[Rfam]
RNA sequence: UGCCGAGGUUUUCCUCGGGAGUUAACUACAGCCAGUUUCUUCACAAUUCGGUAGUUAACUACCGAGGGACAU
Numbered sequence: 001u002g003c004c005g006a007g008g009u010u011u012u013c014c015u016c017g018g019g020a021g022u023u024a025a026c027u028a029c030a031g032c033c034a035g036u037u038u039c040u041u042c043a044c045a046a047u048u049c050g051g052u053a054g055u056u057a058a059c060u061a062c063c064g065a066g067g068g069a070c071a072u
Stems, first nucleotide, its partner, number of pairs: 012068002015065004020060010